[Rfam]
RNA: c-di-GMP-I riboswitch aptamer
RNA sequence: UUGGAUGUAAGGUAAAUCCGCUCGAAAGUCGGAGACGCAAAGCCAGGGGUCUGCAUCCCACAAGGGAAAUGAUAACCGGGCGCCCGAG
Numbered sequence: 001u002u003g004g005a006u007g008u009a010a011g012g013u014a015a016a017u018c019c020g021c022u023c024g025a026a027a028g029u030c031g032g033a034g035a036c037g038c039a040a041a042g043c044c045a046g047g048g049g050u051c052u053g054c055a056u057c058c059c060a061c062a063a064g065g066g067a068a069a070u071g072a073u074a075a076c077c078g079g080g081c082g083c084c085c086g087a088g
Stems, first nucleotide, its partner, number of pairs: 012038002017033004023028001042081003047077002049073003056067004